[Rfam]
RNA sequence: ACAACUAAAUAAUGUGUGCUAUAACUCUGUGUAGACCAAGAGCAUGGUGCAGAGAACACUACCCACCUGCGGGUAAGAAUAGCCUAGCCAAAACGAUAGCUUUGGUGACGGUCAAAGGCUUGCAUUGCGAGAUGUAAGAUGCCACCUAUGAAUAGAAUGGUUCUGGGGGUGUGUGCUAAAGCAAUCCUUGUUAAAAACACUGUCCUAUCGCUUCCACAAUAGAAGCUAAGCGUUAAAAGCGUAAGCCGAAUCCGAGGGCUGUGUCGCUGUGGCAAGCGGCAUAAGUACGGAAGUGCCACUAAGGAAGUUUGCUGUGAGAUUGUCGAAAGACAAAGUAUAAGAUAGGGUCAAGGUACGAGUAGCAAAAAGCAAUGACUGUAGUAAUUUUACAAGUCAAAUGAUGAAGAUUUGAAGAAAAUAAUUCUGAAUGCUUUGUGAAAGUUAAGGGUAGAAAGAGCCCCUUGUAAGAUUUGAUGGUUUCCAUCUAGGCAAGAUGUCAUAGGGUAGCUCCCUGUGGCACAGACUUGUCUACUUACUGGUUGAAUAUGACGAUGAUUGUGGAAGGUAGAACGAAGGUUCAUGGCACAUGUUAUUUAGUU
Numbered sequence: 001a002c003a004a005c006u007a008a009a010u011a012a013u014g015u016g017u018g019c020u021a022u023a024a025c026u027c028u029g030u031g032u033a034g035a036c037c038a039a040g041a042g043c044a045u046g047g048u049g050c051a052g053a054g055a056a057c058a059c060u061a062c063c064c065a066c067c068u069g070c071g072g073g074u075a076a077g078a079a080u081a082g083c084c085u086a087g088c089c090a091a092a093a094c095g096a097u098a099g100c101u102u103u104g105g106u107g108a109c110g111g112u113c114a115a116a117g118g119c120u121u122g123c124a125u126u127g128c129g130a131g132a133u134g135u136a137a138g139a140u141g142c143c144a145c146c147u148a149u150g151a152a153u154a155g156a157a158u159g160g161u162u163c164u165g166g167g168g169g170u171g172u173g174u175g176c177u178a179a180a181g182c183a184a185u186c187c188u189u190g191u192u193a194a195a196a197a198c199a200c201u202g203u204c205c206u207a208u209c210g211c212u213u214c215c216a217c218a219a220u221a222g223a224a225g226c227u228a229a230g231c232g233u234u235a236a237a238a239g240c241g242u243a244a245g246c247c248g249a250a251u252c253c254g255a256g257g258g259c260u261g262u263g264u265c266g267c268u269g270u271g272g273c274a275a276g277c278g279g280c281a282u283a284a285g286u287a288c289g290g291a292a293g294u295g296c297c298a299c300u301a302a303g304g305a306a307g308u309u310u311g312c313u314g315u316g317a318g319a320u321u322g323u324c325g326a327a328a329g330a331c332a333a334a335g336u337a338u339a340a341g342a343u344a345g346g347g348u349c350a351a352g353g354u355a356c357g358a359g360u361a362g363c364a365a366a367a368a369g370c371a372a373u374g375a376c377u378g379u380a381g382u383a384a385u386u387u388u389a390c391a392a393g394u395c396a397a398a399u400g401a402u403g404a405a406g407a408u409u410u411g412a413a414g415a416a417a418a419u420a421a422u423u424c425u426g427a428a429u430g431c432u433u434u435g436u437g438a439a440a441g442u443u444a445a446g447g448g449u450a451g452a453a454a455g456a457g458c459c460c461c462u463u464g465u466a467a468g469a470u471u472u473g474a475u476g477g478u479u480u481c482c483a484u485c486u487a488g489g490c491a492a493g494a495u496g497u498c499a500u501a502g503g504g505u506a507g508c509u510c511c512c513u514g515u516g517g518c519a520c521a522g523a524c525u526u527g528u529c530u531a532c533u534u535a536c537u538g539g540u541u542g543a544a545u546a547u548g549a550c551g552a553u554g555a556u557u558g559u560g561g562a563a564g565g566u567a568g569a570a571c572g573a574a575g576g577u578u579c580a581u582g583g584c585a586c587a588u589g590u591u592a593u594u595u596a597g598u599u
Stems, first nucleotide, its partner, number of pairs: 008595002012591001020583001025054005035048004056172005082113001083110001085108001087106006094099001117140001119138008146155003184557001192549001196547001197541001200352002202348008210308006230242004251291004260283004265278003270298004309372005320333005356441001362436005423523004445463004465535003468484001488530002492526002498516007568579004
Background
A member of the RNA family "ROOL RNA", 599 nucleotides long. Rfam's curators write: Firmicutes, Fusobacteria (1 example), Tenericutes (1 example). Rfam's curators put it in the seed alignment.